RNA sequence: UGGUAGAUGCACCCUGAUGAACGUCCCCGGCUAAUCGAGUCCGGGGAUUUUUUUU
Number, nucleotide and partner (000 for none) at each position: 001u000002g013003g012004u011005a000006g000007a000008u000009g000010c000011a004012c003013c002014c000015u000016g000017a000018u000019g000020a000021a000022c000023g000024u047025c046026c045027c044028c043029g042030g041031c000032u039033a000034a000035u000036c000037g000038a000039g032040u000041c030042c029043g028044g027045g026046g025047a024048u000049u000050u000051u000052u000053u000054u000055u000
A member of the RNA family "Nitrogen stress-induced RNA 1" from Microcoleus sp. FACHB-68, 55 nucleotides long. The base pairs follow the family's consensus structure. The match comes from Rfam's covariance-model search (55 bits). The source organism's lineage runs through Bacteria, Bacillati, Oscillatoriophycideae, Oscillatoriales and Microcoleus. Rfam classes the family as a small RNA.